Source information:
glmS glucosamine-6-phosphate activated ribozyme aptamer: a 217-nucleotide sequence from Staphylococcus saccharolyticus. The match comes from Rfam's covariance-model search (122 bits). Lineage of the source: Bacteria > Bacillati > Caryophanales > Staphylococcaceae > Staphylococcus.

RNA sequence: UUAAUAAUUAUAGCGCCUGUGCAAAGUGUUUAAGUUAUUGUUGACAAUUAAGAGUUAAAAUAGGAGAACUUUUAUAGAGAAUGACUUAGCUUUUGUAGACGAGGAGGAUAGUGAUCGAAUAGAUCGGCGGAUGCUAUCCCGGAUGUGGCUCAUUCGUUAGCUUAUUAAGUAAAUCAUUAAGGUGACUUAGUGGACAAAGUUAAUAAGAUCGCUAAAU
Numbered sequence: 001u002u003a004a005u006a007a008u009u010a011u012a013g014c015g016c017c018u019g020u021g022c023a024a025a026g027u028g029u030u031u032a033a034g035u036u037a038u039u040g041u042u043g044a045c046a047a048u049u050a051a052g053a054g055u056u057a058a059a060a061u062a063g064g065a066g067a068a069c070u071u072u073u074a075u076a077g078a079g080a081a082u083g084a085c086u087u088a089g090c091u092u093u094u095g096u097a098g099a100c101g102a103g104g105a106g107g108a109u110a111g112u113g114a115u116c117g118a119a120u121a122g123a124u125c126g127g128c129g130g131a132u133g134c135u136a137u138c139c140c141g142g143a144u145g146u147g148g149c150u151c152a153u154u155c156g157u158u159a160g161c162u163u164a165u166u167a168a169g170u171a172a173a174u175c176a177u178u179a180a181g182g183u184g185a186c187u188u189a190g191u192g193g194a195c196a197a198a199g200u201u202a203a204u205a206a207g208a209u210c211g212c213u214a215a216a217u
Stems, first nucleotide, its partner, number of pairs: 020097007029088001106139005115127004140156006161207007175192007